[Rfam]
The family of this 197-nucleotide RNA from Enterococcus canis is "T-box leader". The match comes from Rfam's covariance-model search (125 bits). From the family's description: Uncharged tRNA acts as the effector for transcription antitermination of genes in the T-box leader family. T-boxes are found upstream of many aminoacyl-tRNA synthetase genes and some amino acid biosynthetic genes usually in Gram-positive bacteria. The anticodon of a specific tRNA base pairs to a specifier sequence within the T-box motif, and the NCCA acceptor tail of the tRNA base pairs to a conserved bulge in the T-box antiterminator hairpin. Taxonomically the source falls in Enterococcus (Bacteria, Bacillota, Lactobacillales, Enterococcaceae). Rfam classes the family as a cis-regulatory leader.
RNA sequence: AUAAACACAAUGAACAGAAGAAGUACAAAAGGCAAAAGUUCAGAGAGAACGUGGUUGGUGCGAACGUUCCUUGCGCUUUUUGGAAAUGCAUCUGGGAGUGGCUUAAACGACAAGUAGUUUGAGACGGUUCACUUACGUUACAAGUUAGAGGCAGUUUACUGCAAACAAAAGUGGAACCACGUCUAGACGUCUUUUGA
Number, nucleotide and partner (000 for none) at each position: 001a000002u000003a000004a000005a000006c000007a099008c098009a000010a000011u000012g000013a000014a000015c094016a093017g092018a091019a000020g000021a000022a000023g000024u000025a000026c082027a081028a080029a079030a078031g077032g000033c000034a000035a000036a072037a071038g070039u000040u000041c000042a000043g000044a000045g000046a000047g069048a068049a067050c066051g065052u064053g000054g000055u000056u000057g000058g000059u000060g000061c000062g000063a000064a052065c051066g050067u049068u048069c047070c038071u037072u036073g000074c000075g000076c000077u031078u030079u029080u028081u027082g026083g000084a000085a000086a000087u000088g000089c000090a000091u018092c017093u016094g015095g000096g000097a000098g008099u007100g000101g000102c123103u122104u121105a120106a119107a118108c117109g000110a000111c000112a000113a000114g000115u000116a000117g108118u107119u106120u105121g104122a103123g102124a000125c137126g136127g000128u000129u000130c000131a000132c000133u000134u000135a000136c126137g125138u000139u000140a000141c000142a000143a000144g000145u000146u000147a000148g000149a000150g000151g162152c161153a160154g159155u000156u000157u000158a000159c154160u153161g152162c151163a000164a000165a000166c000167a000168a194169a193170a192171g191172u000173g000174g000175a000176a000177c000178c000179a190180c189181g188182u187183c000184u000185a000186g000187a182188c181189g180190u179191c171192u170193u169194u168195u000196g000197a000